Nucleotides: 072
Base pairs, nucleotide, nucleotide: 001020002019003018004017006016007015008014030048031047032046033045034044035043036042
Number, partner (000 for none) and nucleotide at each position: 001020g002019g003018c004017c005000a006016c007015c008014u009000u010000u011000c012000g013000g014008g015007g016006g017004g018003g019002c020001u021000u022000u023000u024000a025000c026000c027000a028000u029000a030048g031047g032046c033045a034044a035043a036042g037000c038000g039000u040000u041000g042036c043035u044034u045033u046032g047031c048030c049000g050000c051000a052000u053000a054000a055000g056000c057000a058000a059000a060000c061000g062000g063000a064000a065000g066000a067000c068000a069000c070000a071000a072000a